[Rfam]
RNA: msiK RNA
Organism: Bifidobacterium tsurumiense
RNA sequence: AACGCGAACCCUUCACAACGGAUCGUUCGGCACGUACCUGCCGAUGAAAGGAUGUCAAU
Numbered sequence: 001a002a003c004g005c006g007a008a009c010c011c012u013u014c015a016c017a018a019c020g021g022a023u024c025g026u027u028c029g030g031c032a033c034g035u036a037c038c039u040g041c042c043g044a045u046g047a048a049a050g051g052a053u054g055u056c057a058a059u
Base pairs, nucleotide, nucleotide: 009051010050012048013047014046015045027044028043029042030041031040032039